[Rfam]
RNA sequence: ACACCUUCUUCGUGUAUCCUCGAUGGAUGCAGCCUCAGAUGCUUCA
Numbered sequence: 001a002c003a004c005c006u007u008c009u010u011c012g013u014g015u016a017u018c019c020u021c022g023a024u025g026g027a028u029g030c031a032g033c034c035u036c037a038g039a040u041g042c043u044u045c046a
Stems, first nucleotide, its partner, number of pairs: 010023003031043003

The record is a 46-nucleotide RNA from Musa balbisiana, which matches "Plastid-ycf3 group II-D1 intron" in Rfam.
The family's consensus secondary structure was predicted with LocARNA.
The organism belongs to Musa, within Eukaryota.
From the family's description: Plastid rpl16 is a non-coding RNA (ncRNA) recognised in plastids. It was recognised in and intronic region of a ribosome rpl16 gene.